[Rfam]
This 101-nucleotide RNA sequence from Cicer arietinum belongs to the Rfam family "Small nucleolar RNA Z279/snoR105/snoR108".
A reference for the family is Marker et al. (2002), "Experimental RNomics: identification of 140 candidates for small non-messenger RNAs in the plant Arabidopsis thaliana", Curr Biol.
Clan: snoU13 clan.
The family's consensus secondary structure was predicted with PFOLD.
NCBI's taxonomy places the organism under Eukaryota, Fabaceae, Papilionoideae, Cicereae, Cicer.
This family includes the plant snoRNAs known as Z279, snoR105 and snoR108.
The family's RNA type in Rfam is C/D-box small nucleolar RNA.
RNA sequence: GGGAUAUGAGGAGUGGUCGAGUCUCACAUAUAUGUGAGUUGGGUGUUCGCCCCAAGCCUGGUUACGACAAUUGCGCACUCUCCUUGAAUCAAUCUGAUCCC
Numbered sequence: 001g002g003g004a005u006a007u008g009a010g011g012a013g014u015g016g017u018c019g020a021g022u023c024u025c026a027c028a029u030a031u032a033u034g035u036g037a038g039u040u041g042g043g044u045g046u047u048c049g050c051c052c053c054a055a056g057c058c059u060g061g062u063u064a065c066g067a068c069a070a071u072u073g074c075g076c077a078c079u080c081u082c083c084u085u086g087a088a089u090c091a092a093u094c095u096g097a098u099c100c101c
Base pairs, nucleotide, nucleotide: 001101002100003099004098014091015090016089017088023038024037025036026035027034041080042079043078044077045076046075059073060072061071062070
Dot-bracket structure: ((((.........((((.....(((((......)))))..((((((............((((.......)))).)))))).......))))......))))